[Rfam]
RNA sequence: ACGGGGACUAGCCCGGGUGGCUCGGCGUCACCUGUAACCCGAAACCGCCGUUAUGCGGGAGGCGAAGUCUGAGGAAGGCUGUGGCGGCCUGCCGGAGCCGGUGCGUCCUGACGGAGAAACCUCGUCCUGUGAGGUCGGCGGACAGGCAUCAAUACUCCGGAGGGAGUGGCGACCUGUUGCCGCGGGAACCGGUCCAGGCCCGGAAGGGAGCAGACUUACCGUGGACGUUCGGCGCCCACAGGGUUGCGGGGCGGAGGAAGGAGGCCCCGGUGAACGCAGGUACGAGCUGUCGACCGAGGACGUGUCCCCAA
Numbered sequence: 001a002c003g004g005g006g007a008c009u010a011g012c013c014c015g016g017g018u019g020g021c022u023c024g025g026c027g028u029c030a031c032c033u034g035u036a037a038c039c040c041g042a043a044a045c046c047g048c049c050g051u052u053a054u055g056c057g058g059g060a061g062g063c064g065a066a067g068u069c070u071g072a073g074g075a076a077g078g079c080u081g082u083g084g085c086g087g088c089c090u091g092c093c094g095g096a097g098c099c100g101g102u103g104c105g106u107c108c109u110g111a112c113g114g115a116g117a118a119a120c121c122u123c124g125u126c127c128u129g130u131g132a133g134g135u136c137g138g139c140g141g142a143c144a145g146g147c148a149u150c151a152a153u154a155c156u157c158c159g160g161a162g163g164g165a166g167u168g169g170c171g172a173c174c175u176g177u178u179g180c181c182g183c184g185g186g187a188a189c190c191g192g193u194c195c196a197g198g199c200c201c202g203g204a205a206g207g208g209a210g211c212a213g214a215c216u217u218a219c220c221g222u223g224g225a226c227g228u229u230c231g232g233c234g235c236c237c238a239c240a241g242g243g244u245u246g247c248g249g250g251g252c253g254g255a256g257g258a259a260g261g262a263g264g265c266c267c268c269g270g271u272g273a274a275c276g277c278a279g280g281u282a283c284g285a286g287c288u289g290u291c292g293a294c295c296g297a298g299g300a301c302g303u304g305u306c307c308c309c310a311a
Stems, first nucleotide, its partner, number of pairs: 003309006011063003015033007038059004043054001067301004073295002077291003081287001082285001084283001087281006097275001099269003103265002106262004112256001120251006126242006133235001134233004138228003141178006149172002153168006180224006191216004199208003
The record is a 311-nucleotide sequence from Methanoculleus taiwanensis, which matches "Archaeal signal recognition particle RNA" in Rfam. Its family is annotated with SRP-dependent cotranslational protein targeting to membrane, signal sequence recognition and signal recognition particle, plasma membrane targeting in the Gene Ontology. Its Rfam clan is "SRP clan".